[Rfam]
Shown here is a 65-nucleotide RNA sequence, a member of the family "Fluoride riboswitch aptamer (crcB RNA motif)".

RNA sequence: UUCUCCCCGGGCGAUGGGGCUCGCCCGACCAAACCGCCGACCGGGCUGAUGGCUCCUGACUCUGC
Numbered sequence: 001u002u003c004u005c006c007c008c009g010g011g012c013g014a015u016g017g018g019g020c021u022c023g024c025c026c027g028a029c030c031a032a033a034c035c036g037c038c039g040a041c042c043g044g045g046c047u048g049a050u051g052g053c054u055c056c057u058g059a060c061u062c063u064g065c
Stems, first nucleotide, its partner, number of pairs: 010025004016056006036046003
The family's consensus secondary structure is taken from published work.